[Rfam]
RNA sequence: AGCAAAAGGACGAGCUCUUUGGAUCUGAGCGUGAUGCUGAUAUUACAUUACCGUGGUCUUCAAAGUUCUCUGAUUGCA
Numbered sequence: 001a002g003c004a005a006a007a008g009g010a011c012g013a014g015c016u017c018u019u020u021g022g023a024u025c026u027g028a029g030c031g032u033g034a035u036g037c038u039g040a041u042a043u044u045a046c047a048u049u050a051c052c053g054u055g056g057u058c059u060u061c062a063a064a065g066u067u068c069u070c071u072g073a074u075u076g077c078a
Base pairs, nucleotide, nucleotide: 002077003076004075005074

Description: The record is a 78-nucleotide sequence from Vanilla planifolia, which matches "Small nucleolar RNA R160" in Rfam. Rfam describes the family as follows. snoR160 is a C/D box small nucleolar RNA, which acts as a methylation guide for 25S ribosomal RNA in plants. snoR160 has been alternatively named snoZ270 in rice. Rfam 15.1 lists 799 matches to the family in 221 species. The match comes from Rfam's covariance-model search (50 bits). The source organism's lineage runs through Eukaryota, Tracheophyta, Petrosaviidae, Asparagales and Vanilla. Rfam classes the family as a C/D-box small nucleolar RNA. Pairs were carried over by alignment from the consensus structure. A reference for the family is Chen et al. (2003), "The high diversity of snoRNAs in plants: identification and comparative study of 120 snoRNA genes from Oryza sativa", Nucleic Acids Res.